This 120-nucleotide sequence belongs to the Rfam family "LOOT RNA".
The sequence is in the family's curated seed alignment.
By type it is a small RNA.

RNA sequence: AGCCUAAACCAGUGAUUGCUGGCAUGGUGAAAAGAGCCCCGCAAAGACAUAAAAAACCCAUCAUAUAGGGUCGUCUUUGCGGGCCAUAUCAGGAAACUGGUAUGAGAGACUUCGGUCUCU
Numbered sequence: 001a002g003c004c005u006a007a008a009c010c011a012g013u014g015a016u017u018g019c020u021g022g023c024a025u026g027g028u029g030a031a032a033a034g035a036g037c038c039c040c041g042c043a044a045a046g047a048c049a050u051a052a053a054a055a056a057c058c059c060a061u062c063a064u065a066u067a068g069g070g071u072c073g074u075c076u077u078u079g080c081g082g083g084c085c086a087u088a089u090c091a092g093g094a095a096a097c098u099g100g101u102a103u104g105a106g107a108g109a110c111u112u113c114g115g116u117c118u119c120u
Base pairs, nucleotide, nucleotide: 002028003027004026009022010021011020012019013018038083039082040081041080042079043078044077045076046075047074048073056071057070058069085104086103087102088101089100090099091098092097105120106119107118108117109116110115